About this RNA:
Rfam assigns this 47-nucleotide RNA from Methylophaga lonarensis to the family "Guanidine-II riboswitch aptamer (mini-ykkC)". Gene Ontology term of the family: regulation of gene expression. The base pairs follow the family's consensus structure, which is taken from published work. A search with the family's covariance model found it, with a score of 34 bits. Taxonomically the source falls in Methylophaga lonarensis (Bacteria, Pseudomonadati, Pseudomonadota, Methylophaga).
RNA sequence: CUGCCGGGACGACCCGUCAGUCAUGAACGUUUCGUGGGACGACCCAC
Numbered sequence: 001c002u003g004c005c006g007g008g009a010c011g012a013c014c015c016g017u018c019a020g021u022c023a024u025g026a027a028c029g030u031u032u033c034g035u036g037g038g039a040c041g042a043c044c045c046a047c
Base pairs, nucleotide, nucleotide: 001020002019003018005016006015007014008013034047035046036045037044038043